[Rfam]
RNA sequence: GAGGCGUGCGGCAUAGAGUGGCUCAAAAAGUCAUUCAACCGCUGGUAGAGCACGUCUUUGUCAGUUCCUCGCUAGAGGGCAAACACUACGGAUGUUCUUGUUAAACGCCAAGUCUCUACCCGCGAGCCGCGAAAGCGGCAUAAUGCUCGGGGCUUCGGCCAACCGAGUCGGCGACGGUCCCGCAAGGGCCUAUCUGUUGAUCGUGAAAUUGUCGGAGACGUUAGCGCGUCUCGCUGCCCCGAAGGCAGACGGUGAGGAAGUGAUCGUGUAGUGGUUCGUCAGGGGUGAAACGCCACACCCUAAAAAAGGCAGUCGUGAUGGCUACGCCGGAAGUGAUGAGCUACGGUUGUGGACAAGCGGGAAGCCUCGGUGCCACCGGGGGAUAAUCCGACGAGAGGCCAUCGAUGAAGGGUAUAGUCUCAGCCC
Numbered sequence: 001g002a003g004g005c006g007u008g009c010g011g012c013a014u015a016g017a018g019u020g021g022c023u024c025a026a027a028a029a030g031u032c033a034u035u036c037a038a039c040c041g042c043u044g045g046u047a048g049a050g051c052a053c054g055u056c057u058u059u060g061u062c063a064g065u066u067c068c069u070c071g072c073u074a075g076a077g078g079g080c081a082a083a084c085a086c087u088a089c090g091g092a093u094g095u096u097c098u099u100g101u102u103a104a105a106c107g108c109c110a111a112g113u114c115u116c117u118a119c120c121c122g123c124g125a126g127c128c129g130c131g132a133a134a135g136c137g138g139c140a141u142a143a144u145g146c147u148c149g150g151g152g153c154u155u156c157g158g159c160c161a162a163c164c165g166a167g168u169c170g171g172c173g174a175c176g177g178u179c180c181c182g183c184a185a186g187g188g189c190c191u192a193u194c195u196g197u198u199g200a201u202c203g204u205g206a207a208a209u210u211g212u213c214g215g216a217g218a219c220g221u222u223a224g225c226g227c228g229u230c231u232c233g234c235u236g237c238c239c240c241g242a243a244g245g246c247a248g249a250c251g252g253u254g255a256g257g258a259a260g261u262g263a264u265c266g267u268g269u270a271g272u273g274g275u276u277c278g279u280c281a282g283g284g285g286u287g288a289a290a291c292g293c294c295a296c297a298c299c300c301u302a303a304a305a306a307a308g309g310c311a312g313u314c315g316u317g318a319u320g321g322c323u324a325c326g327c328c329g330g331a332a333g334u335g336a337u338g339a340g341c342u343a344c345g346g347u348u349g350u351g352g353a354c355a356a357g358c359g360g361g362a363a364g365c366c367u368c369g370g371u372g373c374c375a376c377c378g379g380g381g382g383a384u385a386a387u388c389c390g391a392c393g394a395g396a397g398g399c400c401a402u403c404g405a406u407g408a409a410g411g412g413u414a415u416a417g418u419c420u421c422a423g424c425c426c
Stems, first nucleotide, its partner, number of pairs: 001058007008042004016036008044120007107183002122279009136315004145168006151160003169196003177189004199265005212252003235247004292310003317403006323351004328346001330344001352419003357392001358390004411425003

This 426-nucleotide RNA sequence belongs to the Rfam family "Giant, ornate, lake- and Lactobacillales-derived (GOLLD) RNA".